[Rfam]
Notes: Shown here is a 140-nucleotide sequence from Tupaia belangeri, a member of the family "U4 spliceosomal RNA". A search with the family's covariance model found it, with a score of 72 bits. Rfam describes the family as follows. U4 small nuclear RNA (U4 snRNA) is a component of the major U2-dependent spliceosome. By type it is a spliceosomal small nuclear RNA. Taxonomically the source falls in Tupaia belangeri (Eukaryota, Deuterostomia, Gnathostomata, Teleostomi).

RNA sequence: AGCUUUGCGCAGUGGCAGUAUCGUAGCCAAUGAGGUUUAUCCAAGGCGCGAUUAUUGCUAAUUAAAAAGUUCAGGGAAAAUGCAUAUGAAGAAAAGACUAUGCAUGAAUUUCAAUUUGUUUUAUACCAAAUUAAACUGGU
Numbered sequence: 001a002g003c004u005u006u007g008c009g010c011a012g013u014g015g016c017a018g019u020a021u022c023g024u025a026g027c028c029a030a031u032g033a034g035g036u037u038u039a040u041c042c043a044a045g046g047c048g049c050g051a052u053u054a055u056u057g058c059u060a061a062u063u064a065a066a067a068a069g070u071u072c073a074g075g076g077a078a079a080a081u082g083c084a085u086a087u088g089a090a091g092a093a094a095a096g097a098c099u100a101u102g103c104a105u106g107a108a109u110u111u112c113a114a115u116u117u118g119u120u121u122u123a124u125a126c127c128a129a130a131u132u133a134a135a136c137u138g139g140u
Stems, first nucleotide, its partner, number of pairs: 020052005026047003034042002076112003080105007125140004